Background: A member of the RNA family "mir-208 microRNA precursor family" from Laticauda laticaudata, 83 nucleotides long. Lineage of the source: Eukaryota > Vertebrata > Toxicofera > Laticaudinae > Laticauda.
RNA sequence: UCUAAUGAAGAAGCUUUUGGCUCGGGUUAUAUGUGUGACCUUGACAGUGUAUAAGACGAAGCAAAAAGCUUGUUGGUUGGAGG
Numbered sequence: 001u002c003u004a005a006u007g008a009a010g011a012a013g014c015u016u017u018u019g020g021c022u023c024g025g026g027u028u029a030u031a032u033g034u035g036u037g038a039c040c041u042u043g044a045c046a047g048u049g050u051a052u053a054a055g056a057c058g059a060a061g062c063a064a065a066a067a068g069c070u071u072g073u074u075g076g077u078u079g080g081a082g083g
Stems, first nucleotide, its partner, number of pairs: 003079004008074002011071008020062001023058002027054008

The match comes from Rfam's covariance-model search (68 bits). On this family, see Kloosterman et al., Nucleic Acids Res 2006: "Cloning and expression of new microRNAs from zebrafish".